RNA sequence: ACACCGGCGGUAUCUAAUUCGCUUGGUGCAGGUCGGGAACUGCUUCGCUCCGCCUACGGUUUGCGUUUGCCGGUGGCCGGGCUCUCUUCGUCUUCGUUUUUCGCUUUUCUCUGCUUCUGGUUUGGCUUUUUGCCUAAUUUCUUUGCUGCCGUGUUAUCUUUAUCCGAAUGCGAAUUGGAUCCCGCCUUGCAUCAACUGAAUCGGAAACCGUAGUGAAG
Numbered sequence: 001a002c003a004c005c006g007g008c009g010g011u012a013u014c015u016a017a018u019u020c021g022c023u024u025g026g027u028g029c030a031g032g033u034c035g036g037g038a039a040c041u042g043c044u045u046c047g048c049u050c051c052g053c054c055u056a057c058g059g060u061u062u063g064c065g066u067u068u069g070c071c072g073g074u075g076g077c078c079g080g081g082c083u084c085u086c087u088u089c090g091u092c093u094u095c096g097u098u099u100u101u102c103g104c105u106u107u108u109c110u111c112u113g114c115u116u117c118u119g120g121u122u123u124g125g126c127u128u129u130u131u132g133c134c135u136a137a138u139u140u141c142u143u144u145g146c147u148g149c150c151g152u153g154u155u156a157u158c159u160u161u162a163u164c165c166g167a168a169u170g171c172g173a174a175u176u177g178g179a180u181c182c183c184g185c186c187u188u189g190c191a192u193c194a195a196c197u198g199a200a201u202c203g204g205a206a207a208c209c210g211u212a213g214u215g216a217a218g
Base pairs, nucleotide, nucleotide: 013205014204017201018200019199020198023195024194025193026192027191028190029189030188031187032186034184035183036182037181038180040178041177
Rfam assigns this 218-nucleotide sequence from Momordica charantia to the family "MIR168 microRNA precursor family". Taxonomically the source falls in Momordica (Eukaryota, Tracheophyta, Euphyllophyta, fabids). The literature on the family includes a 2002 paper in Genes Dev by Reinhart et al., "MicroRNAs in plants".